[Rfam]
RNA sequence: GCGUUGAAGCGGGGGUACCGCCGAUGGCCUGAACGGCCCGGUGGUUGAGACAGACCCUUCGAACCUGAUGCGGUUUAGACCGCCGUAGGGAAGCUUCGCCGGAGGCGCC
Numbered sequence: 001g002c003g004u005u006g007a008a009g010c011g012g013g014g015g016u017a018c019c020g021c022c023g024a025u026g027g028c029c030u031g032a033a034c035g036g037c038c039c040g041g042u043g044g045u046u047g048a049g050a051c052a053g054a055c056c057c058u059u060c061g062a063a064c065c066u067g068a069u070g071c072g073g074u075u076u077a078g079a080c081c082g083c084c085g086u087a088g089g090g091a092a093g094c095u096u097c098g099c100c101g102g103a104g105g106c107g108c109c
Stems, first nucleotide, its partner, number of pairs: 006097005011058004016052001017045007064089004070083004
The record is a 109-nucleotide RNA from Lysobacter antibioticus, which matches "TPP riboswitch aptamer (THI element)" in Rfam. A search with the family's covariance model found it, with a score of 58 bits.